[Rfam]
Background:
Glycine riboswitch aptamer: a 90-nucleotide RNA from Sulfurifustis variabilis. The match comes from Rfam's covariance-model search (70 bits).
RNA sequence: GAACGCCCUGUGGGAGAGACCCGCUUCAUCGCGGGCGCCGAAGGCGCAACCCGCCCGGAAUCGCUCAGGCAGAAGGACCGCAGGCGCAAG
Dot-bracket structure: ......(((((((......((((........)))).(((((..(((...((.....))...))))).))).......)))))))......
The pairing is the family consensus, mapped onto this sequence.